Rfam assigns this 165-nucleotide sequence from Viridothelium virens to the family "Small nucleolar RNA snR80". The family has 6 seed sequences and 447 matches in Rfam 15.1. NCBI's taxonomy places the organism under Eukaryota, Dikarya, Trypetheliales, Trypetheliaceae, Viridothelium. The literature on the family includes a 2004 paper in Nucleic Acids Res by Schattner et al., "Genome-wide searching for pseudouridylation guide snoRNAs: analysis of the Saccharomyces cerevisiae genome". The base pairs follow the family's consensus structure, which was predicted with WAR. It is annotated as an H/ACA-box small nucleolar RNA. The family is grouped with related families in Rfam's "SNORA28 clan".
RNA sequence: AGACCUUUGCCAACACUCUGCCCUUUACCCCUUUCCUAUGUGGAUUGGACACUCAUGGUAUUUGGCUAUUUUGGUGCAAAGAAGAGCAAUCUGGCCAAUUACUCACCGCGGCAUCUUAUUCCUUAUGGUGUGGGUGCAGCGGUCCAUCCUUUUUUUGGCCGACAA
Numbered sequence: 001a002g003a004c005c006u007u008u009g010c011c012a013a014c015a016c017u018c019u020g021c022c023c024u025u026u027a028c029c030c031c032u033u034u035c036c037u038a039u040g041u042g043g044a045u046u047g048g049a050c051a052c053u054c055a056u057g058g059u060a061u062u063u064g065g066c067u068a069u070u071u072u073g074g075u076g077c078a079a080a081g082a083a084g085a086g087c088a089a090u091c092u093g094g095c096c097a098a099u100u101a102c103u104c105a106c107c108g109c110g111g112c113a114u115c116u117u118a119u120u121c122c123u124u125a126u127g128g129u130g131u132g133g134g135u136g137c138a139g140c141g142g143u144c145c146a147u148c149c150u151u152u153u154u155u156u157g158g159c160c161g162a163c164a165a
Stems, first nucleotide, its partner, number of pairs: 007079003020066003026060004093160004106142004111137006